RNA sequence: GAGGCCAAACCUCAACGAGUUAACUCUACGUUCAACUCCAAGACAUAGAUUGGUUCAAUAUAGUACGAAUCGAUUUAACAACCUCUCUGGUGAUUGGAA
Numbered sequence: 001g002a003g004g005c006c007a008a009a010c011c012u013c014a015a016c017g018a019g020u021u022a023a024c025u026c027u028a029c030g031u032u033c034a035a036c037u038c039c040a041a042g043a044c045a046u047a048g049a050u051u052g053g054u055u056c057a058a059u060a061u062a063g064u065a066c067g068a069a070u071c072g073a074u075u076u077a078a079c080a081a082c083c084u085c086u087c088u089g090g091u092g093a094u095u096g097g098a099a
Stems, first nucleotide, its partner, number of pairs: 001013004017038005023032001046077008055068002082097002